[Rfam]
RNA: Archaeal large subunit ribosomal RNA, nucleotides 2660 to 2908
RNA sequence: GGUACCUGACGGGAACGUUCGUAUAGUACGAGAGGAACUACGAAUGGUCGCCACUGGUGUAUCGGUUGUCCGAGAGGGCAGAUGCCGAGAAGCUACGCGACACGGGGUAAGAGCUGAACGCAUCUAAGCUCGAAACCCACCUGGAAAAGAGGUACCACCGAGGUCACUCGUAGAAGACGAGUUCGAUAGACUUGGGGUGUACGCGCCGAGGCAACGAGGCGUUCAGCCCACGAGUACUAACAGACCGAG
Numbered sequence: 001g002g003u004a005c006c007u008g009a010c011g012g013g014a015a016c017g018u019u020c021g022u023a024u025a026g027u028a029c030g031a032g033a034g035g036a037a038c039u040a041c042g043a044a045u046g047g048u049c050g051c052c053a054c055u056g057g058u059g060u061a062u063c064g065g066u067u068g069u070c071c072g073a074g075a076g077g078g079c080a081g082a083u084g085c086c087g088a089g090a091a092g093c094u095a096c097g098c099g100a101c102a103c104g105g106g107g108u109a110a111g112a113g114c115u116g117a118a119c120g121c122a123u124c125u126a127a128g129c130u131c132g133a134a135a136c137c138c139a140c141c142u143g144g145a146a147a148a149g150a151g152g153u154a155c156c157a158c159c160g161a162g163g164u165c166a167c168u169c170g171u172a173g174a175a176g177a178c179g180a181g182u183u184c185g186a187u188a189g190a191c192u193u194g195g196g197g198u199g200u201a202c203g204c205g206c207c208g209a210g211g212c213a214a215c216g217a218g219g220c221g222u223u224c225a226g227c228c229c230a231c232g233a234g235u236a237c238u239a240a241c242a243g244a245c246c247g248a249g
Stems, first nucleotide, its partner, number of pairs: 001156007010143004016046008047101005055095003062088005067080005104138003111131005162246004166182005187239003190235005195229003203222005210215001